[Rfam]
RNA sequence: AGGGUGCUUCAGCAAGGGUGCUUGAUUCUACUACCCGUCGACCCAUUAGAGGAGCGACGCGGUUGUAGAGUCACGCACCUCUGUUGAGCACCCUG
Numbered sequence: 001a002g003g004g005u006g007c008u009u010c011a012g013c014a015a016g017g018g019u020g021c022u023u024g025a026u027u028c029u030a031c032u033a034c035c036c037g038u039c040g041a042c043c044c045a046u047u048a049g050a051g052g053a054g055c056g057a058c059g060c061g062g063u064u065g066u067a068g069a070g071u072c073a074c075g076c077a078c079c080u081c082u083g084u085u086g087a088g089c090a091c092c093c094u095g
Stems, first nucleotide, its partner, number of pairs: 003093002009087003016080006023073004028068004033063003